The record is a 195-nucleotide RNA sequence from Kluyveromyces lactis, which matches "Small nucleolar RNA snR35" in Rfam.
Pairs were carried over by alignment from the consensus structure, which was predicted with WAR.
It is annotated as an H/ACA-box small nucleolar RNA.
It is one of the family's seed sequences.
Its family is annotated with nucleolus and RNA processing in the Gene Ontology.
The organism belongs to Kluyveromyces, within Eukaryota.

RNA sequence: AUAUUUAUAAUAUCGUGCGGAAAUCCAGGACUAUAAAACCGUGUUGCUUCGUUGCGAUUUUUUAUUUGCAUGCAAGCGUCAAGUCCAUCGGAGAGAUCAAUAUCGUUCAUCUUAGCGCCCUUUCUGUUGAAUAAAUUGGGAAAAGCCUAGCUUCUUCUCACCACAUACAAUGGAGGGCUGGUAGAUCGGAUAUCC
Numbered sequence: 001a002u003a004u005u006u007a008u009a010a011u012a013u014c015g016u017g018c019g020g021a022a023a024u025c026c027a028g029g030a031c032u033a034u035a036a037a038a039c040c041g042u043g044u045u046g047c048u049u050c051g052u053u054g055c056g057a058u059u060u061u062u063u064a065u066u067u068g069c070a071u072g073c074a075a076g077c078g079u080c081a082a083g084u085c086c087a088u089c090g091g092a093g094a095g096a097u098c099a100a101u102a103u104c105g106u107u108c109a110u111c112u113u114a115g116c117g118c119c120c121u122u123u124c125u126g127u128u129g130a131a132u133a134a135a136u137u138g139g140g141a142a143a144a145g146c147c148u149a150g151c152u153u154c155u156u157c158u159c160a161c162c163a164c165a166u167a168c169a170a171u172g173g174a175g176g177g178c179u180g181g182u183a184g185a186u187c188g189g190a191u192a193u194c195c
Stems, first nucleotide, its partner, number of pairs: 013021002024092003028086004046077004050072002053070005058064001112184003117178005124173006131166001137163003140154001144152003
Dot-bracket structure: ............((.....))..(((.((((..............((((((.((((((.....).))))))).)))).....))))...)))...................(((..(((((..((((((.(.....((((...(((...))).)......)))..).)))))))))))...)))...........